[Rfam]
RNA: DUF3800-IX RNA
Nucleotides: 084
Base pairs, nucleotide, nucleotide: 002079003078004077005076006075007074008073009072010071011070016035017034018033019032020031021030022029038067039066040065
Number, partner (000 for none) and nucleotide at each position: 001000u002079c003078c004077c005076a006075c007074c008073c009072u010071g011070c012000g013000a014000a015000a016035g017034g018033u019032c020031g021030c022029c023000g024000a025000u026000u027000g028000u029022g030021g031020c032019g033018g034017c035016c036000c037000c038067g039066c040065c041000c042000c043000c044000g045000u046000c047000u048000g049000g050000a051000a052000g053000u054000g055000a056000u057000g058000a059000c060000g061000g062000u063000g064000c065040g066039g067038c068000u069000a070011g071010c072009a073008g074007g075006g076005u077004g078003g079002g080000u081000u082000g083000c084000u